[Rfam]
Background:
This 73-nucleotide sequence from Alistipes sp. CAG:831 belongs to the Rfam family "tRNA". It scores 65 bits against the family's covariance model. NCBI's taxonomy places the organism under Bacteria, Bacteroidia, Bacteroidales, Rikenellaceae, Alistipes.

RNA sequence: GCUUCCUUAGCUCAGUUGGUAGAGCACGACACUCUUAAUGUUGGGGUCCAGGGUUCGAGCCCCUGAGGGAGCA
Dot-bracket structure: (((((((..((((........)))).(((((.......))))).....(((((.......)))))))))))).
Pairs were carried over by alignment from the consensus structure, which is taken from published work.